Source information: Rfam assigns this 162-nucleotide RNA from [Enterobacter] lignolyticus to the family "Enterobacterial sRNA STnc430". The base pairs follow the family's consensus structure, which was predicted with CMfinder. The family's RNA type in Rfam is small RNA. The match comes from Rfam's covariance-model search (65 bits).

RNA sequence: AUAAAAAUACAAUAUCCGUAUAAUCCGAAAAGAUAUAUUUAUUAUUGAACAGGGAAAAGUGGUUUUCAGAUUAACGCCAUGGCGGCUAUUUCGUGAGACCGAUGAGCAAGAGGAUUUAUCCGAUAAAAAAAUGCCGGCAAUUUGCCGGCAUUGUUCUUUGCU
Numbered sequence: 001a002u003a004a005a006a007a008u009a010c011a012a013u014a015u016c017c018g019u020a021u022a023a024u025c026c027g028a029a030a031a032g033a034u035a036u037a038u039u040u041a042u043u044a045u046u047g048a049a050c051a052g053g054g055a056a057a058a059g060u061g062g063u064u065u066u067c068a069g070a071u072u073a074a075c076g077c078c079a080u081g082g083c084g085g086c087u088a089u090u091u092c093g094u095g096a097g098a099c100c101g102a103u104g105a106g107c108a109a110g111a112g113g114a115u116u117u118a119u120c121c122g123a124u125a126a127a128a129a130a131a132u133g134c135c136g137g138c139a140a141u142u143u144g145c146c147g148g149c150a151u152u153g154u155u156c157u158u159u160g161c162u
Stems, first nucleotide, its partner, number of pairs: 015106001017104003024070002028066004040057001042055002045052002112121002131151009